[Rfam]
RNA sequence: GGCCUCCUGGAGCUUACCAUAGGCUGUGUUCUUACACUGACUACAGAGAGAGACGGCAAAGUAAACCUACCCUAUAUACACCUCAGCCCAGGCCCUGUGCCUGGUCUGUAUUGUGGAUGGGGAGACAUGG
Numbered sequence: 001g002g003c004c005u006c007c008u009g010g011a012g013c014u015u016a017c018c019a020u021a022g023g024c025u026g027u028g029u030u031c032u033u034a035c036a037c038u039g040a041c042u043a044c045a046g047a048g049a050g051a052g053a054c055g056g057c058a059a060a061g062u063a064a065a066c067c068u069a070c071c072c073u074a075u076a077u078a079c080a081c082c083u084c085a086g087c088c089c090a091g092g093c094c095c096u097g098u099g100c101c102u103g104g105u106c107u108g109u110a111u112u113g114u115g116g117a118u119g120g121g122g123a124g125a126c127a128u129g130g
Stems, first nucleotide, its partner, number of pairs: 002057003007052002020043003026037004070122006084108003088104006
Rfam assigns this 130-nucleotide sequence from Castor canadensis to the family "Small nucleolar RNA SNORA51". ACA51 is a member of the H/ACA class of snoRNA that guide the sites of modification of uridines to pseudouridines. The source organism's lineage runs through Eukaryota, Sarcopterygii, Tetrapoda, Eutheria and Castor. Its family is annotated with nucleolus and RNA processing in the Gene Ontology.